[Rfam]
Rfam assigns this 356-nucleotide sequence from Companilactobacillus allii to the family "Bacterial RNase P class B".
RNA sequence: AAUUUUGAGUAAUCGCGGCCUAGUUAUCUAGGCUGAGGAAAGUCCACGCCCGCACGAGCUGAGAUGCUUGUAGUGUCCGUGCUUGGCCCAAUAAGCCAAGGUACCUUCGGGUAACGGCAGCGAACGCACUAAAGCUUUUGCCAUGUGUUACUAGCUUGAAAGUGCCACAGAGACGUAGUAUUACGGGAAACCGUAAUAGUGGAACGAGGUAAACCCCGCGAGCGGGCAACCCAAACUUUGGUAGGGGCGCUUCAUAACGAGAAAUGAAUCUACUGUGAAGGCGUAAUUGUAGAUAGAUGAUUACUAACUGUAUCGGAGUGCCUAGCCGGUACAUGAACAGAACGUGGCUUAUAGAA
Numbered sequence: 001a002a003u004u005u006u007g008a009g010u011a012a013u014c015g016c017g018g019c020c021u022a023g024u025u026a027u028c029u030a031g032g033c034u035g036a037g038g039a040a041a042g043u044c045c046a047c048g049c050c051c052g053c054a055c056g057a058g059c060u061g062a063g064a065u066g067c068u069u070g071u072a073g074u075g076u077c078c079g080u081g082c083u084u085g086g087c088c089c090a091a092u093a094a095g096c097c098a099a100g101g102u103a104c105c106u107u108c109g110g111g112u113a114a115c116g117g118c119a120g121c122g123a124a125c126g127c128a129c130u131a132a133a134g135c136u137u138u139u140g141c142c143a144u145g146u147g148u149u150a151c152u153a154g155c156u157u158g159a160a161a162g163u164g165c166c167a168c169a170g171a172g173a174c175g176u177a178g179u180a181u182u183a184c185g186g187g188a189a190a191c192c193g194u195a196a197u198a199g200u201g202g203a204a205c206g207a208g209g210u211a212a213a214c215c216c217c218g219c220g221a222g223c224g225g226g227c228a229a230c231c232c233a234a235a236c237u238u239u240g241g242u243a244g245g246g247g248c249g250c251u252u253c254a255u256a257a258c259g260a261g262a263a264a265u266g267a268a269u270c271u272a273c274u275g276u277g278a279a280g281g282c283g284u285a286a287u288u289g290u291a292g293a294u295a296g297a298u299g300a301u302u303a304c305u306a307a308c309u310g311u312a313u314c315g316g317a318g319u320g321c322c323u324a325g326c327c328g329g330u331a332c333a334u335g336a337a338c339a340g341a342a343c344g345u346g347g348c349u350u351a352u353a354g355a356a
Stems, first nucleotide, its partner, number of pairs: 004356003007352001008305007016035006040350003044347005049226005054071006078220004082100006101115001102113004116216002119156003126148004134141002162214002164210003179198008230246003250280007281290003309333008

By type it is a ribozyme.
Clan: RNaseP clan.